RNA sequence: GGGGGCGACAUUGGUUUCGACUGUCGUUGUCUUGGAUUCGGUUGCACGUAGAGGUGGGGGUCCUGCUUAAAAACCUUCAAAACAAUAACUGCAAAUAACGAAUUUGCUCUAGCAGCUUAAUUUUAAGCUCUACGGUUCCUCUGGCUGUUUCCUUUGGUGGCUAAGGAACCGACACCUCUCAAAGGACUUUGCCAGCUAAUUGUCUACUUUUAGCGGCAGAGAACACCAAGUAGGCUCGGAAGGAGUCCCCCGGUUGUAGGUCCAGUCCUUCUUAACCUUAUAUACAACAUAAACGUGUAGACGCCGCAUUUGAGGACGAUAGGACCUGGGUUCGAAUCCCAGCGUCUCCAAAA
Numbered sequence: 001g002g003g004g005g006c007g008a009c010a011u012u013g014g015u016u017u018c019g020a021c022u023g024u025c026g027u028u029g030u031c032u033u034g035g036a037u038u039c040g041g042u043u044g045c046a047c048g049u050a051g052a053g054g055u056g057g058g059g060g061u062c063c064u065g066c067u068u069a070a071a072a073a074c075c076u077u078c079a080a081a082a083c084a085a086u087a088a089c090u091g092c093a094a095a096u097a098a099c100g101a102a103u104u105u106g107c108u109c110u111a112g113c114a115g116c117u118u119a120a121u122u123u124u125a126a127g128c129u130c131u132a133c134g135g136u137u138c139c140u141c142u143g144g145c146u147g148u149u150u151c152c153u154u155u156g157g158u159g160g161c162u163a164a165g166g167a168a169c170c171g172a173c174a175c176c177u178c179u180c181a182a183a184g185g186a187c188u189u190u191g192c193c194a195g196c197u198a199a200u201u202g203u204c205u206a207c208u209u210u211u212a213g214c215g216g217c218a219g220a221g222a223a224c225a226c227c228a229a230g231u232a233g234g235c236u237c238g239g240a241a242g243g244a245g246u247c248c249c250c251c252g253g254u255u256g257u258a259g260g261u262c263c264a265g266u267c268c269u270u271c272u273u274a275a276c277c278u279u280a281u282a283u284a285c286a287a288c289a290u291a292a293a294c295g296u297g298u299a300g301a302c303g304c305c306g307c308a309u310u311u312g313a314g315g316a317c318g319a320u321a322g323g324a325c326c327u328g329g330g331u332u333c334g335a336a337u338c339c340c341a342g343c344g345u346c347u348c349c350a351a352a353a
Stems, first nucleotide, its partner, number of pairs: 001349007021322008030313001034311004039306004045297005050067002053064002055079007110132003114129003133171006142163006150186007187221007202236001204234002238272007246264001248260002253288005326342005

This 353-nucleotide sequence from Leptospira ryugenii belongs to the Rfam family "transfer-messenger RNA". Its Rfam clan is "tRNA clan". Bacterial tmRNA, also known as 10Sa RNA or SsrA, is named for its dual tRNA and mRNA-like properties. The organism belongs to Leptospira, within Bacteria.